Rfam assigns this 63-nucleotide sequence from Stegodyphus mimosarum to the family "Selenocysteine insertion sequence 1".
It scores 36 bits against the family's covariance model.
The source organism's lineage runs through Eukaryota, Opisthokonta, Ecdysozoa, Eresoidea and Stegodyphus.
It is annotated as a cis-regulatory element.
The base pairs follow the family's consensus structure, which is taken from published work.

[Rfam]
RNA sequence: UAAAGUGAUAUGAUAAUUAUUACUUAAAUCUUAAUCGGAGGUAAUAGUUGGAUGACUGCUAUA
Numbered sequence: 001u002a003a004a005g006u007g008a009u010a011u012g013a014u015a016a017u018u019a020u021u022a023c024u025u026a027a028a029u030c031u032u033a034a035u036c037g038g039a040g041g042u043a044a045u046a047g048u049u050g051g052a053u054g055a056c057u058g059c060u061a062u063a
Base pairs, nucleotide, nucleotide: 001063002062004060005059015049016048017047018046019045020044021043022042023041024040029039030038031037